[Rfam]
RNA sequence: AAGUAUAAGCAGAAGCCAUCCGCUUCUCACCUUACGCUGCUGGCAGUAGGGUUGUUAUAGGUCGUAAUGUAUACUAUGCGGAUGGGACUACCAUCCGCUUUUGUUUUGUAAA
Numbered sequence: 001a002a003g004u005a006u007a008a009g010c011a012g013a014a015g016c017c018a019u020c021c022g023c024u025u026c027u028c029a030c031c032u033u034a035c036g037c038u039g040c041u042g043g044c045a046g047u048a049g050g051g052u053u054g055u056u057a058u059a060g061g062u063c064g065u066a067a068u069g070u071a072u073a074c075u076a077u078g079c080g081g082a083u084g085g086g087a088c089u090a091c092c093a094u095c096c097g098c099u100u101u102u103g104u105u106u107u108g109u110a111a112a
Base pairs, nucleotide, nucleotide: 011027012026013025014024015023016022029052030051031050036047037046038045039044078098079097080096081095082094083093084092085091
Dot-bracket structure: ..........((((((.....)))))).(((....((((....))))..))).........................((((((((.....))))))))..............